[Rfam]
RNA: transfer-messenger RNA
RNA sequence: GGGGAUGAUCGGUUUCGACAGCGGCUGUCGAAGCAGGGGAAGCGUGUCGAGGAAGCGGCCAUGAUCUCGUAAACCACAGGCCGAAAAAAAUAAUCGCCAAUUCCAAGCGAUCUGUCUCCCAGGGCGAGCUCGCCCUCGCUGCCUGAUCUUCAGGUAGCGAGCAGCGGCUCCCCUACUUAAGGGAGUGUCAGCCCGGGGAUGUUCCCGACCCGGAUCCUGGCAUCAGCUAGGGAACUAAACCUUGAUCCCGGUCACGGGGUGAAGAGGGAAACCACACAGUGACUGGGCCCGUCGGAGACUUGUCGGCGUGAUCUCCGGGGCCGAGAAAAGCACAGCCGACUGCACACGGAGAAGCCCUGGUUCCGCACCGUUGGACGCGGGUUCGAUUCCCGCCAUCUCCACUU
Numbered sequence: 001g002g003g004g005a006u007g008a009u010c011g012g013u014u015u016c017g018a019c020a021g022c023g024g025c026u027g028u029c030g031a032a033g034c035a036g037g038g039g040a041a042g043c044g045u046g047u048c049g050a051g052g053a054a055g056c057g058g059c060c061a062u063g064a065u066c067u068c069g070u071a072a073a074c075c076a077c078a079g080g081c082c083g084a085a086a087a088a089a090a091u092a093a094u095c096g097c098c099a100a101u102u103c104c105a106a107g108c109g110a111u112c113u114g115u116c117u118c119c120c121a122g123g124g125c126g127a128g129c130u131c132g133c134c135c136u137c138g139c140u141g142c143c144u145g146a147u148c149u150u151c152a153g154g155u156a157g158c159g160a161g162c163a164g165c166g167g168c169u170c171c172c173c174u175a176c177u178u179a180a181g182g183g184a185g186u187g188u189c190a191g192c193c194c195g196g197g198g199a200u201g202u203u204c205c206c207g208a209c210c211c212g213g214a215u216c217c218u219g220g221c222a223u224c225a226g227c228u229a230g231g232g233a234a235c236u237a238a239a240c241c242u243u244g245a246u247c248c249c250g251g252u253c254a255c256g257g258g259g260u261g262a263a264g265a266g267g268g269a270a271a272c273c274a275c276a277c278a279g280u281g282a283c284u285g286g287g288c289c290c291g292u293c294g295g296a297g298a299c300u301u302g303u304c305g306g307c308g309u310g311a312u313c314u315c316c317g318g319g320g321c322c323g324a325g326a327a328a329a330g331c332a333c334a335g336c337c338g339a340c341u342g343c344a345c346a347c348g349g350a351g352a353a354g355c356c357c358u359g360g361u362u363c364c365g366c367a368c369c370g371u372u373g374g375a376c377g378c379g380g381g382u383u384c385g386a387u388u389c390c391c392g393c394c395a396u397c398u399c400c401a402c403u404u
Stems, first nucleotide, its partner, number of pairs: 001400007019373006030363003034359005043348005048069005056083005136160009186222006193213003198210001200208001201235006240267004250284006286322005293317003297313002302340004377393005